[Rfam]
RNA sequence: CUUUUUUACGCAUAUGUAAUCACCUCACUAUAUUUUACUGUUCCUGUUGAUUUUCUAACAGGUAUAGAAAAACGUAUAGUAUGGUUUGUGAGUUCCUAUUAUGCGUAUAAAACCAAAAAAGGUACUGCCUAGCGGUAAAUAAAAAAACCGUUAUUAACAGUAUCAUUUUUGCGUGUCAAAAAAUAUCAUUACUUCAAUGGCGGUUUGAUAAGCCGCCUUUUUCUUUUUCCAUCAAAA
Numbered sequence: 001c002u003u004u005u006u007u008a009c010g011c012a013u014a015u016g017u018a019a020u021c022a023c024c025u026c027a028c029u030a031u032a033u034u035u036u037a038c039u040g041u042u043c044c045u046g047u048u049g050a051u052u053u054u055c056u057a058a059c060a061g062g063u064a065u066a067g068a069a070a071a072a073c074g075u076a077u078a079g080u081a082u083g084g085u086u087u088g089u090g091a092g093u094u095c096c097u098a099u100u101a102u103g104c105g106u107a108u109a110a111a112a113c114c115a116a117a118a119a120a121g122g123u124a125c126u127g128c129c130u131a132g133c134g135g136u137a138a139a140u141a142a143a144a145a146a147a148c149c150g151u152u153a154u155u156a157a158c159a160g161u162a163u164c165a166u167u168u169u170u171g172c173g174u175g176u177c178a179a180a181a182a183a184u185a186u187c188a189u190u191a192c193u194u195c196a197a198u199g200g201c202g203g204u205u206u207g208a209u210a211a212g213c214c215g216c217c218u219u220u221u222u223c224u225u226u227u228u229c230c231a232u233c234a235a236a237a
Stems, first nucleotide, its partner, number of pairs: 002112003007107002011103001013101002029076003033072004038067004043062007081089002123162005131155001132151004196220002199217001201215006
RNA: Cis-regulator of HTH transcription factor